RNA sequence: GCCUGGCUUUGUAACGGAAGCUUGUGACCUGAGUGGGGGCAUUGAGAUGAUGGGACGUGGGUUAGGCUCCUUGAGUCGGAUCCUUGUGGCUUUACCAUGGCUUGCCCGUUCCAAGAGAAGAGUUGGACUAUGGGACCUCAGUGAAAACUGCGUGUCAUGGCCUGCUAGAGUGAAGGGUACUGCGUGAGGCUGGUUUCACAGAGCAGCGAAGACCUUCCCCUCUUUUGCAGUGGGAGGAUUUACAAGCUUCAUUCACCAAGAUCCAACAUGUCUCAGCGAAGCCUACCUUAACUGAACCAUCAUCUUU
Numbered sequence: 001g002c003c004u005g006g007c008u009u010u011g012u013a014a015c016g017g018a019a020g021c022u023u024g025u026g027a028c029c030u031g032a033g034u035g036g037g038g039g040c041a042u043u044g045a046g047a048u049g050a051u052g053g054g055a056c057g058u059g060g061g062u063u064a065g066g067c068u069c070c071u072u073g074a075g076u077c078g079g080a081u082c083c084u085u086g087u088g089g090c091u092u093u094a095c096c097a098u099g100g101c102u103u104g105c106c107c108g109u110u111c112c113a114a115g116a117g118a119a120g121a122g123u124u125g126g127a128c129u130a131u132g133g134g135a136c137c138u139c140a141g142u143g144a145a146a147a148c149u150g151c152g153u154g155u156c157a158u159g160g161c162c163u164g165c166u167a168g169a170g171u172g173a174a175g176g177g178u179a180c181u182g183c184g185u186g187a188g189g190c191u192g193g194u195u196u197c198a199c200a201g202a203g204c205a206g207c208g209a210a211g212a213c214c215u216u217c218c219c220c221u222c223u224u225u226u227g228c229a230g231u232g233g234g235a236g237g238a239u240u241u242a243c244a245a246g247c248u249u250c251a252u253u254c255a256c257c258a259a260g261a262u263c264c265a266a267c268a269u270g271u272c273u274c275a276g277c278g279a280a281g282c283c284u285a286c287c288u289u290a291a292c293u294g295a296a297c298c299a300u301c302a303u304c305u306u307u
Stems, first nucleotide, its partner, number of pairs: 001040003005022006028037003044306010056294002058291001060289001061287001063285004068279002071276005077270001078264005084258001087255003092251001099248006106237002109235005115228001116226007124164003128160006135153001137152001139150004165170001172217005181210001183208003190201003
Shown here is a 307-nucleotide RNA sequence from Hibiscus syriacus, a member of the family "Plant signal recognition particle RNA". It is annotated as a non-coding RNA gene. A search with the family's covariance model found it, with a score of 190 bits.